[Rfam]
RNA sequence: UUGUACAAAGAUAAAAACACAGUCCCGGUUGGUAGUCCGGGCGCAGCGUAUGCUGUCAGUAACCUGCCUCCUUGGUUGUCCGCUCUUUGUGAUACAAAA
Numbered sequence: 001u002u003g004u005a006c007a008a009a010g011a012u013a014a015a016a017a018c019a020c021a022g023u024c025c026c027g028g029u030u031g032g033u034a035g036u037c038c039g040g041g042c043g044c045a046g047c048g049u050a051u052g053c054u055g056u057c058a059g060u061a062a063c064c065u066g067c068c069u070c071c072u073u074g075g076u077u078g079u080c081c082g083c084u085c086u087u088u089g090u091g092a093u094a095c096a097a098a099a
Stems, first nucleotide, its partner, number of pairs: 004091008022042002025040004043056005066076003
RNA: azaaromatic riboswitch aptamer (yjdF RNA)
Organism: Anaerocolumna chitinilytica